RNA sequence: AGUUAAUAAUUAAUUGACCUUCAUAUAUGUUUGGGAAUAUGGCCCAGAUGUCUCUACCUGAACACCUUAAAUGUUCAGUCUAUGAAGGUAGAGGUCUGCAUG
Dot-bracket structure: .................((((((((...(((((((.......)))))))........(((((((.......)))))))..))))))))..............
Numbered sequence: 001a002g003u004u005a006a007u008a009a010u011u012a013a014u015u016g017a018c019c020u021u022c023a024u025a026u027a028u029g030u031u032u033g034g035g036a037a038u039a040u041g042g043c044c045c046a047g048a049u050g051u052c053u054c055u056a057c058c059u060g061a062a063c064a065c066c067u068u069a070a071a072u073g074u075u076c077a078g079u080c081u082a083u084g085a086a087g088g089u090a091g092a093g094g095u096c097u098g099c100a101u102g
Stems, first nucleotide, its partner, number of pairs: 018088008029049007058078007
Rfam assigns this 102-nucleotide sequence from Gracilibacillus ureilyticus to the family "Purine riboswitch aptamer".
The literature on the family includes a 2003 paper in Cell by Mandal et al., "Riboswitches Control Fundamental Biochemical Pathways in Bacillus subtilis and Other Bacteria".
Pairs were carried over by alignment from the consensus structure, which is taken from published work.
Taxonomically the source falls in Gracilibacillus (Bacteria, Bacillati, Bacillota, Caryophanales).